RNA sequence: GCAACGGGGGCAGGCUAAGAAGCGCGGAAGUGUCCACGGUCGCCGUUCCGCCGCGCUGAGCCACUGGCGAGACCGUGCCUCAUUACC
Numbered sequence: 001g002c003a004a005c006g007g008g009g010g011c012a013g014g015c016u017a018a019g020a021a022g023c024g025c026g027g028a029a030g031u032g033u034c035c036a037c038g039g040u041c042g043c044c045g046u047u048c049c050g051c052c053g054c055g056c057u058g059a060g061c062c063a064c065u066g067g068c069g070a071g072a073c074c075g076u077g078c079c080u081c082a083u084u085a086c087c
Base pairs, nucleotide, nucleotide: 001087004084007081008080009079010078011077013062014061015060022056023055024054025053026052027051030049038074039073040070041069042068043067044066